[Rfam]
A member of the RNA family "L31-Actinobacteria ribosomal protein leader", 39 nucleotides long. The family's RNA type in Rfam is cis-regulatory leader.

RNA sequence: CCGGCUCCGGUUCACGUCGCGCGCGGCGACCCGGCGGCC
Numbered sequence: 001c002c003g004g005c006u007c008c009g010g011u012u013c014a015c016g017u018c019g020c021g022c023g024c025g026g027c028g029a030c031c032c033g034g035c036g037g038c039c
Base pairs, nucleotide, nucleotide: 003039004038005037007034008033009032010031015028016027017026018025019024